About this RNA: A member of the RNA family "Potassium channel RNA editing signal" from Menidia menidia, 114 nucleotides long. A reference for the family is Bhalla et al. (2004), "Control of human potassium channel inactivation by editing of a small mRNA hairpin", Nat Struct Mol Biol. Rfam classes the family as a cis-regulatory element. It scores 94 bits against the family's covariance model. NCBI's taxonomy places the organism under Eukaryota, Metazoa, Deuterostomia, Neopterygii, Menidia. Pairs were carried over by alignment from the consensus structure, which is taken from published work.

RNA sequence: GUCGGCUAUGGAGACAUGUGUCCAUCCACCAUCUGGGGCAAAUUCGUCGGAUCCUUGUGCGCAAUCGCCGGAGUGCUGUCCAUAGCUUUACCUGUUCCCGUGAUCGUUUCCAAU
Numbered sequence: 001g002u003c004g005g006c007u008a009u010g011g012a013g014a015c016a017u018g019u020g021u022c023c024a025u026c027c028a029c030c031a032u033c034u035g036g037g038g039c040a041a042a043u044u045c046g047u048c049g050g051a052u053c054c055u056u057g058u059g060c061g062c063a064a065u066c067g068c069c070g071g072a073g074u075g076c077u078g079u080c081c082a083u084a085g086c087u088u089u090a091c092c093u094g095u096u097c098c099c100g101u102g103a104u105c106g107u108u109u110c111c112a113a114u
Stems, first nucleotide, its partner, number of pairs: 001114002004111002008107004014101002018097001020095002037077004050062001